This 29-nucleotide sequence belongs to the Rfam family "L31-Firmicutes ribosomal protein leader". The base pairs follow the family's consensus structure, which is taken from published work. Rfam's curators put it in the seed alignment. The family's RNA type in Rfam is cis-regulatory leader.
[Rfam]
RNA sequence: CUAUGACCUAUUGGUUAUGGCGGAAGGAG
Numbered sequence: 001c002u003a004u005g006a007c008c009u010a011u012u013g014g015u016u017a018u019g020g021c022g023g024a025a026g027g028a029g
Base pairs, nucleotide, nucleotide: 001020002019003018004017005016006015007014008013